[Rfam]
RNA sequence: CGAUGAGGUAGAGGUCGCAGUUUUUAAUAGUAAAACGGAAGAGAUCCAGAGAAUCCCUGACGCCGGUUGAAAGGAAAAACUGCCGAAGUGUGCUUCAUCUCUAUUGAAGUAUGCUGGGGCUGUAUCCGAAUAGGAACAGAACUGUCACGAUCGGUCCGACAAGCCAGUCGUGUUGAGCUAUCUGUCGG
Numbered sequence: 001c002g003a004u005g006a007g008g009u010a011g012a013g014g015u016c017g018c019a020g021u022u023u024u025u026a027a028u029a030g031u032a033a034a035a036c037g038g039a040a041g042a043g044a045u046c047c048a049g050a051g052a053a054u055c056c057c058u059g060a061c062g063c064c065g066g067u068u069g070a071a072a073g074g075a076a077a078a079a080c081u082g083c084c085g086a087a088g089u090g091u092g093c094u095u096c097a098u099c100u101c102u103a104u105u106g107a108a109g110u111a112u113g114c115u116g117g118g119g120c121u122g123u124a125u126c127c128g129a130a131u132a133g134g135a136a137c138a139g140a141a142c143u144g145u146c147a148c149g150a151u152c153g154g155u156c157c158g159a160c161a162a163g164c165c166a167g168u169c170g171u172g173u174u175g176a177g178c179u180a181u182c183u184g185u186c187g188g
Stems, first nucleotide, its partner, number of pairs: 006183006017083009033068002036065003087115011116143002120139004125134002146172006